[Rfam]
RNA sequence: CCAGAAAAAGGCAAACCUAUUGAAAGAUGGGGACGCAAAGUCACGGGUCUAAGGUCUUGAAAACAGUUUCAGGCUAGGACGGCUGGAUUGCCUGGA
Numbered sequence: 001c002c003a004g005a006a007a008a009a010g011g012c013a014a015a016c017c018u019a020u021u022g023a024a025a026g027a028u029g030g031g032g033a034c035g036c037a038a039a040g041u042c043a044c045g046g047g048u049c050u051a052a053g054g055u056c057u058u059g060a061a062a063a064c065a066g067u068u069u070c071a072g073g074c075u076a077g078g079a080c081g082g083c084u085g086g087a088u089u090g091c092c093u094g095g096a
Base pairs, nucleotide, nucleotide: 003093004092011036012035016031017030018029019028020027021026034082039089040088041087042086044085045084046083047080048079049078
RNA: c-di-GMP-I-GGC riboswitch aptamer